[Rfam]
RNA sequence: UUGUGUUCAGCCCGACCCCCCGGGGCUGAACACAGACGACCCUCGCCUCCUCCCCCCUGGCGAGGGUCGUCCCUU
Numbered sequence: 001u002u003g004u005g006u007u008c009a010g011c012c013c014g015a016c017c018c019c020c021c022g023g024g025g026c027u028g029a030a031c032a033c034a035g036a037c038g039a040c041c042c043u044c045g046c047c048u049c050c051u052c053c054c055c056c057c058u059g060g061c062g063a064g065g066g067u068c069g070u071c072c073c074u075u
Stems, first nucleotide, its partner, number of pairs: 002034012035071013
Dot-bracket structure: .((((((((((((.........))))))))))))(((((((((((((...........)))))))))))))....
A member of the RNA family "6C RNA" from Rhodococcus coprophilus, 75 nucleotides long. A search with the family's covariance model found it, with a score of 85 bits. Pairs were carried over by alignment from the consensus structure, which is taken from published work. The source organism's lineage runs through Bacteria, Bacillati, Mycobacteriales, Nocardiaceae and Rhodococcus.